[Rfam]
RNA sequence: CUUCAGCGAACCGAGGCGGAGCGGCUGCCCCGCGGGACGGGUUUGCCCGUAGGUGUUGAUCAGUGCCCGUGCCUC
Numbered sequence: 001c002u003u004c005a006g007c008g009a010a011c012c013g014a015g016g017c018g019g020a021g022c023g024g025c026u027g028c029c030c031c032g033c034g035g036g037a038c039g040g041g042u043u044u045g046c047c048c049g050u051a052g053g054u055g056u057u058g059a060u061c062a063g064u065g066c067c068c069g070u071g072c073c074u075c
Stems, first nucleotide, its partner, number of pairs: 014026002017023001031071003038065002044059001048055002
ASpks TB sRNA: a 75-nucleotide RNA from Actinobacteria bacterium OK074. The organism belongs to Actinomycetes, within Bacteria. Rfam 15.1 lists 9,052 matches to the family in 683 species. Pairs were carried over by alignment from the consensus structure, which is taken from published work.